The family of this 97-nucleotide sequence from Acionnavirus monteraybay is "PhotoRC-II RNA". By type it is a cis-regulatory element. Taxonomically the source falls in Acionnavirus monteraybay (Viruses, Uroviricota, Pantevenvirales, Acionnavirus).
RNA sequence: UAACGCUUCUUUACACGCCUUACCAAGACUAAACAGCGUGUCUAAACAAGAGUCUUUCAUACCUGCCUCUGAGGGUGAGACAGGAAUAUCUUACUAG
Number, nucleotide and partner (000 for none) at each position: 001u000002a000003a000004c000005g000006c000007u000008u000009c000010u000011u000012u000013a000014c040015a039016c038017g037018c036019c000020u000021u000022a000023c000024c000025a056026a055027g054028a053029c052030u000031a000032a000033a000034c000035a000036g018037c017038g016039u015040g014041u000042c000043u000044a000045a000046a000047c000048a000049a000050g000051a000052g029053u028054c027055u026056u025057u000058c000059a000060u000061a000062c084063c083064u082065g081066c000067c079068u078069c000070u000071g000072a000073g000074g000075g000076u000077g000078a068079g067080a000081c065082a064083g063084g062085a000086a000087u000088a000089u000090c000091u000092u000093a000094c000095u000096a000097g000